[Rfam]
RNA: small nucleolar RNA snR35
Organism: Umbelopsis isabellina
RNA sequence: AUCGUGUGCGGCGAUUCGUAAUACUUGCCUCGUGUUGCUCGCGAGUUGUGUUUCUUCUGUCGAUCCGUUAGAGCGUCAACGCAAGUAAAGAACAAAGUUCUACAAAAUCUUAACGCCCAUUCUUCUAUGAAUAUAUCUACUCAUAGAAGAGGGCUGGUAUUUGUAACAUAC
Dot-bracket structure: .....................((((((.........((((....((((............))))......)))).......)))))).............((((((.............((((((((.((..........)).))))))))........))))))......
Numbered sequence: 001a002u003c004g005u006g007u008g009c010g011g012c013g014a015u016u017c018g019u020a021a022u023a024c025u026u027g028c029c030u031c032g033u034g035u036u037g038c039u040c041g042c043g044a045g046u047u048g049u050g051u052u053u054c055u056u057c058u059g060u061c062g063a064u065c066c067g068u069u070a071g072a073g074c075g076u077c078a079a080c081g082c083a084a085g086u087a088a089a090g091a092a093c094a095a096a097g098u099u100c101u102a103c104a105a106a107a108u109c110u111u112a113a114c115g116c117c118c119a120u121u122c123u124u125c126u127a128u129g130a131a132u133a134u135a136u137c138u139a140c141u142c143a144u145a146g147a148a149g150a151g152g153g154c155u156g157g158u159a160u161u162u163g164u165a166a167c168a169u170a171c
Stems, first nucleotide, its partner, number of pairs: 022087006037074004045064004101165006120151008129142002